[Rfam]
RNA sequence: UGACUGCGAUGAAGCGAGAGGUUACCGACACACCCGGCCGCUUUGCCAUGGCGAGUGAUCGGAAAAUUUUCGUGGAGAAUGUCUAUAUUGAAAUAGGCGA
Numbered sequence: 001u002g003a004c005u006g007c008g009a010u011g012a013a014g015c016g017a018g019a020g021g022u023u024a025c026c027g028a029c030a031c032a033c034c035c036g037g038c039c040g041c042u043u044u045g046c047c048a049u050g051g052c053g054a055g056u057g058a059u060c061g062g063a064a065a066a067u068u069u070u071c072g073u074g075g076a077g078a079a080u081g082u083c084u085a086u087a088u089u090g091a092a093a094u095a096g097g098c099g100a
Stems, first nucleotide, its partner, number of pairs: 014073003018070004025062004080099004086095003

Description
A member of the RNA family "S10-Clostridia ribosomal protein leader" from Mangrovibacillus cuniculi, 100 nucleotides long. For this family Rfam cites "Discovery of 20 novel ribosomal leader candidates in bacteria and archaea" (Eckert and Weinberg, BMC Microbiol, 2020). The match comes from Rfam's covariance-model search (36 bits). The family's RNA type in Rfam is cis-regulatory leader.